[Rfam]
RNA sequence: AGAACGUUUCAGGGCGAGGUGCAAUUCCUCACCGGUGGUGAUGCGGCAUGCUGCAAAGUCCACGAGCCGAAAGGCUGAAUCGGUGCAAAUCCGAUACCGACGGUUAUAGUCCGGAUGAGAGAAACAAAAC
Numbered sequence: 001a002g003a004a005c006g007u008u009u010c011a012g013g014g015c016g017a018g019g020u021g022c023a024a025u026u027c028c029u030c031a032c033c034g035g036u037g038g039u040g041a042u043g044c045g046g047c048a049u050g051c052u053g054c055a056a057a058g059u060c061c062a063c064g065a066g067c068c069g070a071a072a073g074g075c076u077g078a079a080u081c082g083g084u085g086c087a088a089a090u091c092c093g094a095u096a097c098c099g100a101c102g103g104u105u106a107u108a109g110u111c112c113g114g115a116u117g118a119g120a121g122a123a124a125c126a127a128a129a130c
Stems, first nucleotide, its partner, number of pairs: 006125005017029003031110002033099002035063004058097002066075003079095005101113003